The record is a 115-nucleotide RNA sequence from Thermosediminibacter oceani, which matches "SAM riboswitch aptamer (S box leader)" in Rfam. The SAM riboswitch is found upstream of a number of genes which code for proteins involved in methionine or cysteine biosynthesis in Gram-positive bacteria. Taxonomically the source falls in Thermosediminibacter oceani (Bacteria, Bacillati, Clostridia, Thermosediminibacter).
RNA sequence: CUCUUAUCAAGAGUGGUGGAGGGACUGGCCCGAUGAAACCCGGCAACCGUUAGAAGCUCUGCUUCUAAAAUGGUGCCAAUUCCUGCAAAACGUUAAGCGUUUUGAGAGAUAAGAG
Numbered sequence: 001c002u003c004u005u006a007u008c009a010a011g012a013g014u015g016g017u018g019g020a021g022g023g024a025c026u027g028g029c030c031c032g033a034u035g036a037a038a039c040c041c042g043g044c045a046a047c048c049g050u051u052a053g054a055a056g057c058u059c060u061g062c063u064u065c066u067a068a069a070a071u072g073g074u075g076c077c078a079a080u081u082c083c084u085g086c087a088a089a090a091c092g093u094u095a096a097g098c099g100u101u102u103u104g105a106g107a108g109a110u111a112a113g114a115g
Stems, first nucleotide, its partner, number of pairs: 001115008013041001015040003021031003025085001027083002042077004047073002050068006081107001086104006